[Rfam]
RNA sequence: CUCUUAUCAAGAGCGGUGGAGGGACUGGCCCGAUGAAGCCCGGCAACCAUUAAGCGAAGAUACAUUCUCGCUUAAACGGUGCUAAUGCCUGUGGAAUGAUUGUUCCUGGCGAUGAGAG
Numbered sequence: 001c002u003c004u005u006a007u008c009a010a011g012a013g014c015g016g017u018g019g020a021g022g023g024a025c026u027g028g029c030c031c032g033a034u035g036a037a038g039c040c041c042g043g044c045a046a047c048c049a050u051u052a053a054g055c056g057a058a059g060a061u062a063c064a065u066u067c068u069c070g071c072u073u074a075a076a077c078g079g080u081g082c083u084a085a086u087g088c089c090u091g092u093g094g095a096a097u098g099a100u101u102g103u104u105c106c107u108g109g110c111g112a113u114g115a116g117a118g
Base pairs, nucleotide, nucleotide: 001118002117003116004115005114006113007112008111013041015040016039017038021031022030023029025091027089028088042083043082044081045080047079048078050075051074052073053072054071055070056069057068087110093106094105095104096103097102
RNA: SAM riboswitch aptamer (S box leader)
Organism: Aneurinibacillus migulanus